[Rfam]
Nucleotides: 045
Stems, first nucleotide, its partner, number of pairs: 001020001003018006034045004
Number, partner (000 for none) and nucleotide at each position: 001020g002000g003018u004017g005016g006015a007014g008013g009000a010000c011000g012000a013008c014007c015006u016005c017004c018003g019000a020001c021000c022000c023000c024000a025000a026000u027000c028000c029000a030000u031000u032000c033000g034045c035044a036043g037042g038000a039000c040000g041000g042037c043036c044035u045034g
The record is a 45-nucleotide RNA from Tardiphaga sp. vice352, which matches "Guanidine-II riboswitch aptamer (mini-ykkC)" in Rfam. The family's consensus secondary structure is taken from published work. For this family Rfam cites "Identification of 22 candidate structured RNAs in bacteria using the CMfinder comparative genomics pipeline" (Weinberg et al., Nucleic Acids Res, 2007). The match comes from Rfam's covariance-model search (36 bits). Rfam links the family to the GO term regulation of gene expression. Simpler in structure and has fewer highly conserved nucleotide positions than the ykkC-yxkD leader. Despite this each of its two stem-loop structures directly bind free guanidine. Therefore, mini-ykkC RNA motif represents a distinct class of guanidine-sensing RNAs. The organism belongs to Tardiphaga, within Bacteria.